[Rfam]
RNA: SraB RNA
RNA sequence: GGGGCAUAUUUUUUCCCUCAGAUAUAGCGUAUUAAUGAGAGCCAUCUUAAACUAUGCUCUUCGUCCUUCAAGCAUGACAUACAGUCACGGUUUGAGCGAAAAUAAGUCUGUAACCCGCAAUGUGUGCGAAUUAUUGGCAAAAGGCAACCGCAGGCUGCCUUUUUCUUU
Numbered sequence: 001g002g003g004g005c006a007u008a009u010u011u012u013u014u015c016c017c018u019c020a021g022a023u024a025u026a027g028c029g030u031a032u033u034a035a036u037g038a039g040a041g042c043c044a045u046c047u048u049a050a051a052c053u054a055u056g057c058u059c060u061u062c063g064u065c066c067u068u069c070a071a072g073c074a075u076g077a078c079a080u081a082c083a084g085u086c087a088c089g090g091u092u093u094g095a096g097c098g099a100a101a102a103u104a105a106g107u108c109u110g111u112a113a114c115c116c117g118c119a120a121u122g123u124g125u126g127c128g129a130a131u132u133a134u135u136g137g138c139a140a141a142a143g144g145c146a147a148c149c150g151c152a153g154g155c156u157g158c159c160u161u162u163u164u165c166u167u168u
Stems, first nucleotide, its partner, number of pairs: 017039004060100005069094003073089001075087004110134004116128004139163008148154002